RNA sequence: UUAUUUCAGGGGUCUCUAACCUUGGCAACUUUAAGCCUGGUGACUUCAACUCCCAGAAUUCUGGAGUUGAAGUCACCAGGCUUAAAGUUGCCAAGGUUGGAGACCCUUGG
Numbered sequence: 001u002u003a004u005u006u007c008a009g010g011g012g013u014c015u016c017u018a019a020c021c022u023u024g025g026c027a028a029c030u031u032u033a034a035g036c037c038u039g040g041u042g043a044c045u046u047c048a049a050c051u052c053c054c055a056g057a058a059u060u061c062u063g064g065a066g067u068u069g070a071a072g073u074c075a076c077c078a079g080g081c082u083u084a085a086a087g088u089u090g091c092c093a094a095g096g097u098u099g100g101a102g103a104c105c106c107u108u109g110g
Base pairs, nucleotide, nucleotide: 016100017099018098019097020096021095022094024092025091026090027089028088029087030086031085032084033083034082035081036080037079038078040076041075042074043073044072045071046070047069048068049067050066051065
RNA: mir-36 microRNA precursor family